A member of the RNA family "small nucleolar RNA snoR143" from Gossypium schwendimanii, 167 nucleotides long. Lineage of the source: Eukaryota > Embryophyta > Euphyllophyta > Pentapetalae > Gossypium. By type it is an H/ACA-box small nucleolar RNA. Rfam 15.1 lists 660 matches to the family in 212 species.
[Rfam]
RNA sequence: UUCUUCAACAACAGUGCAGAAAUUAAAGGUUUAAUUUUUUUUUAUAUUUCUUGUUUGAAAAGAAAAGAAAGAAGAAAAAUUAAGCAGCGGCCAGACAACCGUAGGGAUGGUAUCCACAGAUGAAGGGUUUUUAAUCCCUUUUUGUCUACUGAUUCCAUCUCACAUUU
Numbered sequence: 001u002u003c004u005u006c007a008a009c010a011a012c013a014g015u016g017c018a019g020a021a022a023u024u025a026a027a028g029g030u031u032u033a034a035u036u037u038u039u040u041u042u043u044a045u046a047u048u049u050c051u052u053g054u055u056u057g058a059a060a061a062g063a064a065a066a067g068a069a070a071g072a073a074g075a076a077a078a079a080u081u082a083a084g085c086a087g088c089g090g091c092c093a094g095a096c097a098a099c100c101g102u103a104g105g106g107a108u109g110g111u112a113u114c115c116a117c118a119g120a121u122g123a124a125g126g127g128u129u130u131u132u133a134a135u136c137c138c139u140u141u142u143u144g145u146c147u148a149c150u151g152a153u154u155c156c157a158u159c160u161c162a163c164a165u166u167u
Stems, first nucleotide, its partner, number of pairs: 002061001004059003009053003013048004018043005025036002104161007112154001123143004127138001
The family's consensus secondary structure was predicted with RNAalifold.